This 129-nucleotide RNA from Tupaia belangeri belongs to the Rfam family "Small nucleolar RNA SNORA61". By type it is an H/ACA-box small nucleolar RNA. NCBI's taxonomy places the organism under Eukaryota, Deuterostomia, Tetrapoda, Mammalia, Tupaia belangeri. Gene Ontology terms of the family: RNA processing and nucleolus. A search with the family's covariance model found it, with a score of 79 bits. Pairs were carried over by alignment from the consensus structure, which was predicted with PFOLD.
[Rfam]
RNA sequence: ACCCUCUGUUUUUCUUUUCUAUAGGAUCUGAACCCUGCUCUUGGUGGCUGUAAAAGAAGGAAAAGAAAUAAUGAAGCUGGCCUCUGGUGGUGUAGCCUGGCUACACUGUGGGGCUGGUUUCAGACACCC
Numbered sequence: 001a002c003c004c005u006c007u008g009u010u011u012u013u014c015u016u017u018u019c020u021a022u023a024g025g026a027u028c029u030g031a032a033c034c035c036u037g038c039u040c041u042u043g044g045u046g047g048c049u050g051u052a053a054a055a056g057a058a059g060g061a062a063a064a065g066a067a068a069u070a071a072u073g074a075a076g077c078u079g080g081c082c083u084c085u086g087g088u089g090g091u092g093u094a095g096c097c098u099g100g101c102u103a104c105a106c107u108g109u110g111g112g113g114c115u116g117g118u119u120u121c122a123g124a125c126a127c128c129c
Base pairs, nucleotide, nucleotide: 003060004059005058007056019047020046021045022044025040026039028037077117078116079115080114081113082112083111092106093105